[Rfam]
A member of the RNA family "c-di-GMP-I riboswitch aptamer" from Paenibacillus ginsengarvi, 99 nucleotides long.
RNA sequence: GUACGAUAAUAGCAAACCCGCUUAAAGACGGGGACGCAAAGCUAAAGGGGCUAAAGGAUUUGCUUAAAACGCAAAUGCCAAUGCUAGCCAGCUGCCGAA
Numbered sequence: 001g002u003a004c005g006a007u008a009a010u011a012g013c014a015a016a017c018c019c020g021c022u023u024a025a026a027g028a029c030g031g032g033g034a035c036g037c038a039a040a041g042c043u044a045a046a047g048g049g050g051c052u053a054a055a056g057g058a059u060u061u062g063c064u065u066a067a068a069a070c071g072c073a074a075a076u077g078c079c080a081a082u083g084c085u086a087g088c089c090a091g092c093u094g095c096c097g098a099a
Stems, first nucleotide, its partner, number of pairs: 012037002017032004022027001040093004047089002049085003056079002
Notes
Rfam links the family to the GO term cyclic-di-GMP binding.